RNA sequence: UCUGGUGCUCUACUAUGAGAACUGAAUUCCAUAGAUGGCUCAUUCAGGUAUCGUCUAUGGGCUCAGUUCUUUUGGAAUGGUACUAAUU
Numbered sequence: 001u002c003u004g005g006u007g008c009u010c011u012a013c014u015a016u017g018a019g020a021a022c023u024g025a026a027u028u029c030c031a032u033a034g035a036u037g038g039c040u041c042a043u044u045c046a047g048g049u050a051u052c053g054u055c056u057a058u059g060g061g062c063u064c065a066g067u068u069c070u071u072u073u074g075g076a077a078u079g080g081u082a083c084u085a086a087u088u
Base pairs, nucleotide, nucleotide: 008079011076013074018070019069020068021067022066023065024064025063033056034055035054036053
Rfam assigns this 88-nucleotide RNA sequence from Merluccius polli to the family "mir-146 microRNA precursor family".
A search with the family's covariance model found it, with a score of 58 bits.